This 135-nucleotide sequence from Rudaeicoccus suwonensis belongs to the Rfam family "SAM (S-adenosyl methionine) riboswitch aptamer". A search with the family's covariance model found it, with a score of 86 bits. SAM-IV is a mRNA element that regulates gene expression via direct sensing of S-adenosylmethionine (SAM or AdoMet). SAM-IV riboswitches share conserved nucleotide positions with the previously described SAM-I riboswitches sequence analysis and molecular recognition experiments suggest that SAM-I and SAM-IV riboswitches share similar ligand binding sites, but have different scaffolds. The family's consensus secondary structure is taken from published work. Taxonomically the source falls in Rudaeicoccus (Bacteria, Bacillati, Actinomycetes, Dermacoccaceae). Gene Ontology terms of the family: S-adenosylmethionine metabolic process and regulation of gene expression.
RNA sequence: GGUCACGAGUCUCAGCUGUUCGCGCUUGGCGUGAACAAAGCCCCGGCUGGCUGAGCGGCAACCCUCCUUCCGCGGUGGGGUGCCCCGGGUGAGGACAAGGUCGGCCCCGCUCGUCGGUGCCGACAAGCGCGGGCC
Numbered sequence: 001g002g003u004c005a006c007g008a009g010u011c012u013c014a015g016c017u018g019u020u021c022g023c024g025c026u027u028g029g030c031g032u033g034a035a036c037a038a039a040g041c042c043c044c045g046g047c048u049g050g051c052u053g054a055g056c057g058g059c060a061a062c063c064c065u066c067c068u069u070c071c072g073c074g075g076u077g078g079g080g081u082g083c084c085c086c087g088g089g090u091g092a093g094g095a096c097a098a099g100g101u102c103g104g105c106c107c108c109g110c111u112c113g114u115c116g117g118u119g120c121c122g123a124c125a126a127g128c129g130c131g132g133g134c135c
Stems, first nucleotide, its partner, number of pairs: 002096003009056001011055006022047001057084003062080003066075002100124006107117003